Rfam assigns this 85-nucleotide RNA sequence from Harryflintia acetispora to the family "ZMP/ZTP riboswitch aptamer (pfl RNA motif)". The family's consensus secondary structure is taken from published work. Rfam 15.1 lists 3,295 matches to the family in 2,545 species. The literature on the family includes a 2015 paper in Nat Struct Mol Biol by Jones and Ferre-D'Amare, "Recognition of the bacterial alarmone ZMP through long-distance association of two RNA subdomains".

[Rfam]
RNA sequence: AGCGCUGCGUGCGACUGACGGGUAAUUGUAGAAUAACUACAGUGGAGCACGAAAGCGGAUUGAGCCGACCGUCUGGGCGAUUCCU
Numbered sequence: 001a002g003c004g005c006u007g008c009g010u011g012c013g014a015c016u017g018a019c020g021g022g023u024a025a026u027u028g029u030a031g032a033a034u035a036a037c038u039a040c041a042g043u044g045g046a047g048c049a050c051g052a053a054a055g056c057g058g059a060u061u062g063a064g065c066c067g068a069c070c071g072u073c074u075g076g077g078c079g080a081u082u083c084c085u
Stems, first nucleotide, its partner, number of pairs: 003057003006053001008051005015044001017073005028040004064078003